[Rfam]
RNA sequence: UCAUAUAUAUGACAAUGACAGAGAGCACGCUUGUACACAUCCACAGCCUCACAUGAAUGGAAACGGGCGUGCUCUCUCUCAUUGUCAAAUGUUG
Numbered sequence: 001u002c003a004u005a006u007a008u009a010u011g012a013c014a015a016u017g018a019c020a021g022a023g024a025g026c027a028c029g030c031u032u033g034u035a036c037a038c039a040u041c042c043a044c045a046g047c048c049u050c051a052c053a054u055g056a057a058u059g060g061a062a063a064c065g066g067g068c069g070u071g072c073u074c075u076c077u078c079u080c081a082u083u084g085u086c087a088a089a090u091g092u093u094g
Stems, first nucleotide, its partner, number of pairs: 010087005016081002020077002023074001025072010
RNA: MIR535 microRNA precursor family